[Rfam]
RNA sequence: GGGACGUCCCAGGGGUGCCGGAUUCCGGCUGAGAGAGUCCCUUGGAACCUGAACCGGAUUGUGCCGGCGUAGGGAGCGGACGAGGCGCGAGAU
Numbered sequence: 001g002g003g004a005c006g007u008c009c010c011a012g013g014g015g016u017g018c019c020g021g022a023u024u025c026c027g028g029c030u031g032a033g034a035g036a037g038u039c040c041c042u043u044g045g046a047a048c049c050u051g052a053a054c055c056g057g058a059u060u061g062u063g064c065c066g067g068c069g070u071a072g073g074g075a076g077c078g079g080a081c082g083a084g085g086c087g088c089g090a091g092a093u
Base pairs, nucleotide, nucleotide: 006081007080008079009078011042012041013040014039016036017029018028019027020026021025048073049072050071051070054067055066056065057064
About this RNA
The family of this 93-nucleotide sequence from Abyssibacter profundi is "TPP riboswitch aptamer (THI element)". The family's consensus secondary structure is taken from published work. It scores 66 bits against the family's covariance model. About the family: Vitamin B(1) in its active form thiamin pyrophosphate (TPP) is an essential coenzyme that is synthesised by coupling of pyrimidine and thiazole moieties in bacteria.